[Rfam]
RNA sequence: CGACCUGUCUUUGGGGAGUAGCCCGCCCGGCGCGCGACGCACGGGGCAUGCGUCAACAGACUUGGGCCCUUGCGGCCUAUGGCGCAUGCGGCUUUCGAGCUGGGCGAGACCAUUGACUGCGCGCCGAUCCAACAGGCCGGAGUCGGUGCGCGGUCAAUGCGUGCUCAUGCCAUCCGGCCGGAU
Numbered sequence: 001c002g003a004c005c006u007g008u009c010u011u012u013g014g015g016g017a018g019u020a021g022c023c024c025g026c027c028c029g030g031c032g033c034g035c036g037a038c039g040c041a042c043g044g045g046g047c048a049u050g051c052g053u054c055a056a057c058a059g060a061c062u063u064g065g066g067c068c069c070u071u072g073c074g075g076c077c078u079a080u081g082g083c084g085c086a087u088g089c090g091g092c093u094u095u096c097g098a099g100c101u102g103g104g105c106g107a108g109a110c111c112a113u114u115g116a117c118u119g120c121g122c123g124c125c126g127a128u129c130c131a132a133c134a135g136g137c138c139g140g141a142g143u144c145g146g147u148g149c150g151c152g153g154u155c156a157a158u159g160c161g162u163g164c165u166c167a168u169g170c171c172a173u174c175c176g177g178c179c180g181g182a183u
Stems, first nucleotide, its partner, number of pairs: 024043002046089010063079005094182003
A member of the RNA family "Manganese Mn2+ riboswitch aptamer (yybP-ykoY)" from Paenacidovorax monticola, 183 nucleotides long.
The source organism's lineage runs through Bacteria, Pseudomonadota, Betaproteobacteria, Burkholderiales and Paenacidovorax.